[Rfam]
RNA sequence: GUGCCCUGCGAAGGCUGACACAGUGCCUGCAGGGUAAAGGAAGCCUCUGUAAAACCCAGAGAAGACACUGUGAAACUCCUCUUUGAAUCCUGUCUGGAGUCACGGCU
Numbered sequence: 001g002u003g004c005c006c007u008g009c010g011a012a013g014g015c016u017g018a019c020a021c022a023g024u025g026c027c028u029g030c031a032g033g034g035u036a037a038a039g040g041a042a043g044c045c046u047c048u049g050u051a052a053a054a055c056c057c058a059g060a061g062a063a064g065a066c067a068c069u070g071u072g073a074a075a076c077u078c079c080u081c082u083u084u085g086a087a088u089c090c091u092g093u094c095u096g097g098a099g100u101c102a103c104g105g106c107u
Base pairs, nucleotide, nucleotide: 002036003035004034005033006032007031008030009029010028014024015023016022017021043101045099046098047097048096049095057085058084059083060082061081062080064078065077069074
The record is a 107-nucleotide sequence from Fukomys damarensis, which matches "Small nucleolar RNA SNORA26" in Rfam. The family is grouped with related families in Rfam's "SNORA27 clan". The family's consensus secondary structure was predicted with RNAalifold. The family has 76 seed sequences and 1,943 matches in Rfam 15.1. The snoRNA HBI-6 belong to the H/ACA family of snoRNAs, guiding the pseudouridylation of position U4522 if the 28S rRNA. HBI-6 is the human orthologue of mouse MBI-6 snoRNA. A reference for the family is Huttenhofer et al. (2001), "RNomics: an experimental approach that identifies 201 candidates for novel, small, non-messenger RNAs in mouse", EMBO J.